[Rfam]
RNA sequence: ACAACAUUCGGACCGUUGGUCUACCGAGCAAUAUCACCCGCUCAGUGGAAGUUUUUUUGUCCGUGUC
Number, nucleotide and partner (000 for none) at each position: 001a000002c000003a000004a066005c065006a064007u000008u000009c000010g058011g057012a056013c000014c000015g053016u000017u051018g000019g000020u049021c048022u047023a046024c045025c000026g043027a042028g041029c040030a000031a000032u000033a000034u000035c000036a000037c000038c000039c000040g029041c028042u027043c026044a000045g024046u023047g022048g021049a020050a000051g017052u000053u015054u000055u000056u012057u011058u010059g000060u000061c000062c000063g000064u006065g005066u004067c000
RNA: mir-2774 microRNA precursor family